[Rfam]
RNA: Giant, ornate, lake- and Lactobacillales-derived (GOLLD) RNA
RNA sequence: CGGAGUAGUCUAGUAUUUGGUCGUUCAAAAGAUGACUAAGCUUACGACAGACCACUACUUCGACACAUCCACGACACACACUUAAAAUGAAUUUAAGUCAAAUUAAAUACAAUUAAGCAAGAGUGUCUGUCAGGUAUCAGUGAAAGGUGACUACAUAGUAAUGAGCCGUUCAUUGCACAUGAUGACCGCAAGUCUGACUGUAAUCUUACCAAAGACCUCUAUUCCCGCAAGGAAGAGUUGGGGAGGCAUCCUCAAAGAGAGUUGAGUAAUUAGAGAGUAAUUGAUACCUCAAGGAGUGGUGUACCUAAAAGACCGUCAUUGAGAAAUACUUUCCAAAAGAAAGUGGAUAUUAAGGGAAACAAUAAUCCUUAUAAAGGUUCUCACAAAUAGGUGUAAUCUCAGCCU
Numbered sequence: 001c002g003g004a005g006u007a008g009u010c011u012a013g014u015a016u017u018u019g020g021u022c023g024u025u026c027a028a029a030a031g032a033u034g035a036c037u038a039a040g041c042u043u044a045c046g047a048c049a050g051a052c053c054a055c056u057a058c059u060u061c062g063a064c065a066c067a068u069c070c071a072c073g074a075c076a077c078a079c080a081c082u083u084a085a086a087a088u089g090a091a092u093u094u095a096a097g098u099c100a101a102a103u104u105a106a107a108u109a110c111a112a113u114u115a116a117g118c119a120a121g122a123g124u125g126u127c128u129g130u131c132a133g134g135u136a137u138c139a140g141u142g143a144a145a146g147g148u149g150a151c152u153a154c155a156u157a158g159u160a161a162u163g164a165g166c167c168g169u170u171c172a173u174u175g176c177a178c179a180u181g182a183u184g185a186c187c188g189c190a191a192g193u194c195u196g197a198c199u200g201u202a203a204u205c206u207u208a209c210c211a212a213a214g215a216c217c218u219c220u221a222u223u224c225c226c227g228c229a230a231g232g233a234a235g236a237g238u239u240g241g242g243g244a245g246g247c248a249u250c251c252u253c254a255a256a257g258a259g260a261g262u263u264g265a266g267u268a269a270u271u272a273g274a275g276a277g278u279a280a281u282u283g284a285u286a287c288c289u290c291a292a293g294g295a296g297u298g299g300u301g302u303a304c305c306u307a308a309a310a311g312a313c314c315g316u317c318a319u320u321g322a323g324a325a326a327u328a329c330u331u332u333c334c335a336a337a338a339g340a341a342a343g344u345g346g347a348u349a350u351u352a353a354g355g356g357a358a359a360c361a362a363u364a365a366u367c368c369u370u371a372u373a374a375a376g377g378u379u380c381u382c383a384c385a386a387a388u389a390g391g392u393g394u395a396a397u398c399u400c401a402g403c404c405u
Stems, first nucleotide, its partner, number of pairs: 001062009012042003017039009046131007117189002132289010147319005158176006177201003184194003204274003208270001217259004222234004238255003242251002298314003302310001321382005327345007346398003351371006390404003